[Rfam]
RNA sequence: AUGUAAGAAACUUUUCACUUUUUAGGUUCACUCAAUAAAUGAUGUAUGUGGUUUAUAAUAUGGACUACAUACAUCAUUUAUUGAAUGAACCUAAAAAAUGAAAAGUUUCUUACAU
Dot-bracket structure: .((((((.(((((.(((.(((((((.((((.(((((((((((((....((((...........))))....))))))))))))).)))).))))))).))).))))).)))))).
Numbered sequence: 001a002u003g004u005a006a007g008a009a010a011c012u013u014u015u016c017a018c019u020u021u022u023u024a025g026g027u028u029c030a031c032u033c034a035a036u037a038a039a040u041g042a043u044g045u046a047u048g049u050g051g052u053u054u055a056u057a058a059u060a061u062g063g064a065c066u067a068c069a070u071a072c073a074u075c076a077u078u079u080a081u082u083g084a085a086u087g088a089a090c091c092u093a094a095a096a097a098a099u100g101a102a103a104a105g106u107u108u109c110u111u112a113c114a115u
Stems, first nucleotide, its partner, number of pairs: 002114006009107005015101003019097007027089004032084013049067004
This 115-nucleotide RNA sequence from Medicago truncatula belongs to the Rfam family "MIR2593 microRNA precursor family". The source organism's lineage runs through Eukaryota, Embryophyta, Pentapetalae, Hologalegina and Medicago. The base pairs follow the family's consensus structure, which was predicted with RNAalifold.